[Rfam]
RNA sequence: UCAAGAAGUCUUAGACGUUGCUGAUCGUCAAGACAGCGAUAAACGCCGUACACCUAACGGCAGGCCUCAAGAGACGAUUAACGUUAACCUGCGUGCGUAAACUUUGCGGCAAACAGAAGUAUUAAAAGUGUUUUACGGAGCAUGUGAGCAAUGAAAUUACCCAUUUAUUUGGACUAUUC
Numbered sequence: 001u002c003a004a005g006a007a008g009u010c011u012u013a014g015a016c017g018u019u020g021c022u023g024a025u026c027g028u029c030a031a032g033a034c035a036g037c038g039a040u041a042a043a044c045g046c047c048g049u050a051c052a053c054c055u056a057a058c059g060g061c062a063g064g065c066c067u068c069a070a071g072a073g074a075c076g077a078u079u080a081a082c083g084u085u086a087a088c089c090u091g092c093g094u095g096c097g098u099a100a101a102c103u104u105u106g107c108g109g110c111a112a113a114c115a116g117a118a119g120u121a122u123u124a125a126a127a128g129u130g131u132u133u134u135a136c137g138g139a140g141c142a143u144g145u146g147a148g149c150a151a152u153g154a155a156a157u158u159a160c161c162c163a164u165u166u167a168u169u170u171g172g173a174c175u176a177u178u179c
Base pairs, nucleotide, nucleotide: 001125003123004122006120014049017046018045020044022042025039026038027037028036051063054060055059065109066108068106069105070104071103078100079099080098082095083094084093129159130158132156141153142152143151

The record is a 179-nucleotide RNA from Xenorhabdus bovienii, which matches "IscS-1 ICR thermometer" in Rfam. About the family: Imprinting control region from upstream of iscS-1 (cysteine desulfurase). Taxonomically the source falls in Xenorhabdus bovienii (Bacteria, Enterobacterales, Morganellaceae, Xenorhabdus). It is annotated as an RNA thermoregulator.